[Rfam]
RNA sequence: GAGGCGAUAUCUGUUGAGAAUUGCACUCCUUAGCAUACUUACAAUAACAUAACUUUUGCAGUGUUGGAUUCUGCUCUGAGCCAAAUCUGGACCGAGACAGAAGG
Numbered sequence: 001g002a003g004g005c006g007a008u009a010u011c012u013g014u015u016g017a018g019a020a021u022u023g024c025a026c027u028c029c030u031u032a033g034c035a036u037a038c039u040u041a042c043a044a045u046a047a048c049a050u051a052a053c054u055u056u057u058g059c060a061g062u063g064u065u066g067g068a069u070u071c072u073g074c075u076c077u078g079a080g081c082c083a084a085a086u087c088u089g090g091a092c093c094g095a096g097a098c099a100g101a102a103g104g
Stems, first nucleotide, its partner, number of pairs: 001028003004024005010019002071100003074096003078092001081090002